[Rfam]
RNA sequence: ACAGUCUGGUAUCGAUGGCGAUACCGGUGAAAACCGGUAUACGGGGGUAAUCUGACACCGUCAGGACGGCAUCUGCCGCGAACGGCUCUGCGAGCCGGGGCACCCCGCAAUAACUCAGCACACCUUCACCCCGGUGCGCAGAUAUCAGCUG
Number, nucleotide and partner (000 for none) at each position: 001a000002c151003a150004g149005u148006c000007u147008g146009g145010u144011a143012u142013c141014g000015a000016u000017g000018g000019c043020g042021a040022u039023a038024c037025c036026g035027g034028u000029g000030a000031a000032a000033a000034c027035c026036g025037g024038u023039a022040u021041a000042c020043g019044g106045g105046g104047g103048u000049a000050a000051u000052c064053u063054g062055a061056c060057a000058c000059c000060g056061u055062c054063a053064g052065g000066a000067c000068g000069g000070c000071a000072u000073c000074u000075g000076c000077c000078g000079c000080g000081a000082a000083c099084g096085g095086c094087u093088c092089u000090g000091c000092g088093a087094g086095c085096c084097g000098g000099g083100g000101c000102a000103c047104c046105c045106c044107g000108c000109a000110a000111u000112a000113a000114c000115u000116c000117a000118g000119c000120a000121c000122a000123c000124c000125u000126u000127c000128a000129c000130c000131c000132c000133g000134g000135u000136g000137c000138g000139c000140a000141g013142a012143u011144a010145u009146c008147a007148g005149c004150u003151g002
EFASI RNA: a 151-nucleotide RNA sequence from Morganella morganii. It is one of the family's seed sequences.